[Rfam]
RNA sequence: GGCGAUAAACUGCGGCGUAGACUAGGCGCAGCGGACCCGGGGGCAGUACCCGGCGGCUCCACCAAAACCGGCGCACGCGCCGGUUUCGACGGGGCCGAACCAGGAUCGACGUGUGUUGAAAGGCGCUGUUUUCGCUCGGAAUGGGACCACCGUAACGGCCCAUUACACAAGUGCCAACGAUAACGAAGCACUCGCGAUUGCGGCGUAA
Numbered sequence: 001g002g003c004g005a006u007a008a009a010c011u012g013c014g015g016c017g018u019a020g021a022c023u024a025g026g027c028g029c030a031g032c033g034g035a036c037c038c039g040g041g042g043g044c045a046g047u048a049c050c051c052g053g054c055g056g057c058u059c060c061a062c063c064a065a066a067a068c069c070g071g072c073g074c075a076c077g078c079g080c081c082g083g084u085u086u087c088g089a090c091g092g093g094g095c096c097g098a099a100c101c102a103g104g105a106u107c108g109a110c111g112u113g114u115g116u117u118g119a120a121a122g123g124c125g126c127u128g129u130u131u132u133c134g135c136u137c138g139g140a141a142u143g144g145g146a147c148c149a150c151c152g153u154a155a156c157g158g159c160c161c162a163u164u165a166c167a168c169a170a171g172u173g174c175c176a177a178c179g180a181u182a183a184c185g186a187a188g189c190a191c192u193c194g195c196g197a198u199u200g201c202g203g204c205g206u207a208a
Stems, first nucleotide, its partner, number of pairs: 001136005015126004027115003031112003037053005054097007137152003